The family of this 229-nucleotide RNA is "Streptomyces sRNA 4677". A reference for the family is Hindra et al. (2014), "Complex intra-operonic dynamics mediated by a small RNA in Streptomyces coelicolor", PLoS One. Rfam describes the family as follows. Located in the intergenic region between anti-sigma factor SCO4677 gene and a putative regulatory protein gene SCO4676. scr4677 expression requires the SCO4677 activity and scr4677 sRNA itself seem to affect the levels of the SCO4676-associated transcripts.
RNA sequence: GGCCACGACGCCUAAAGGCUUUUAAAGAACUCGGGAAAACAACCCACCCAAACCCCACCCGACCCCGUCCUGACCUGCGUCACUCACACGGGUGACAUAUGACAACUGAGCUGGAUUUGGCCCGGGUUGGCUGGCAUAUGCUCGCCGCGACAACCACAGAACGAGACGGCCCCCGGCGAGACGCGAAUCUCAACCAGGGGCCUGACCACCGAGGAAGUAGCCCUUCCCA
Dot-bracket structure: (.....((((.......................................................))))..........((((((....))))))..............(.(((...........................))).).....................(((((..((.((((......))))..))..)))))....).....(((((.....)))))..